[Rfam]
RNA sequence: GGUUUAAUUACCCAAGUUUGAGGUAAUUGGAAUGUUUCGGCCCAGAGUUUCGGCUACUGUGGCUUGAAGUAAAAUUUUGGAA
Numbered sequence: 001g002g003u004u005u006a007a008u009u010a011c012c013c014a015a016g017u018u019u020g021a022g023g024u025a026a027u028u029g030g031a032a033u034g035u036u037u038c039g040g041c042c043c044a045g046a047g048u049u050u051c052g053g054c055u056a057c058u059g060u061g062g063c064u065u066g067a068a069g070u071a072a073a074a075u076u077u078u079g080g081a082a
Stems, first nucleotide, its partner, number of pairs: 003032002005029008035069004040063003